[Rfam]
RNA sequence: CAGCUAUAGGUCUGUGGUUGAAAGUUCAUGCCAGUCGCAGGCGAAAGAAUCCACGUAAGUUAAUCCAAAAGGGGAUUGACGAUCAUGGUGCGGCUUAGAAGUAAGUCCUGCCGACAUUAAAGUCGAGAGAGUUAGUAGUACGGCAAUCCCAAGCGAACCCUCCAGCAGGCGAGUGUGGGGUCAAAGACCAGGUCAGCUAUAGCUA
Numbered sequence: 001c002a003g004c005u006a007u008a009g010g011u012c013u014g015u016g017g018u019u020g021a022a023a024g025u026u027c028a029u030g031c032c033a034g035u036c037g038c039a040g041g042c043g044a045a046a047g048a049a050u051c052c053a054c055g056u057a058a059g060u061u062a063a064u065c066c067a068a069a070a071g072g073g074g075a076u077u078g079a080c081g082a083u084c085a086u087g088g089u090g091c092g093g094c095u096u097a098g099a100a101g102u103a104a105g106u107c108c109u110g111c112c113g114a115c116a117u118u119a120a121a122g123u124c125g126a127g128a129g130a131g132u133u134a135g136u137a138g139u140a141c142g143g144c145a146a147u148c149c150c151a152a153g154c155g156a157a158c159c160c161u162c163c164a165g166c167a168g169g170c171g172a173g174u175g176u177g178g179g180g181u182c183a184a185a186g187a188c189c190a191g192g193u194c195a196g197c198u199a200u201a202g203c204u205a
Stems, first nucleotide, its partner, number of pairs: 002204008012196003015190005028176003031041001033095007050088002055083001059080007086183001107169005112125004129162003138154002

The family of this 205-nucleotide sequence from Alkalithermobacter paradoxus is "raiA RNA". It is annotated as a riboswitch. Lineage of the source: Bacteria > Bacillati > Clostridia > Peptostreptococcales > Alkalithermobacter.